RNA: Alphaproteobacterial sRNA BjrC1505
Nucleotides: 143
Base pairs, nucleotide, nucleotide: 001045002044003043004042006015024035026033027032049064050063051062052061072089073088074087075086076085077084095108096107097106098105117138118137119136120135121134122133123132124131125130
Number, partner (000 for none) and nucleotide at each position: 001045c002044g003043c004042a005000u006015g007000c008000c009000g010000u011000u012000a013000a014000c015006c016000c017000u018000u019000c020000a021000u022000u023000a024035a025000g026033c027032u028000u029000u030000a031000c032027a033026g034000g035024u036000g037000u038000u039000u040000a041000c042004u043003g044002u045001g046000u047000g048000c049064a050063u051062c052061c053000a054000g055000u056000g057000a058000u059000c060000u061052g062051g063050a064049u065000u066000c067000u068000u069000a070000c071000c072089g073088a074087g075086u076085g077084g078000u079000u080000g081000g082000a083000g084077c085076c086075a087074c088073u089072c090000u091000g092000u093000u094000u095108g096107a097106c098105g099000c100000c101000u102000c103000c104000c105098u106097g107096u108095u109000a110000a111000a112000c113000u114000c115000c116000u117138g118137a119136g120135a121134g122133c123132c124131g125130c126000u127000u128000u129000u130125g131124c132123g133122g134121c135120u136119c137118u138117u139000u140000u141000u142000u143000u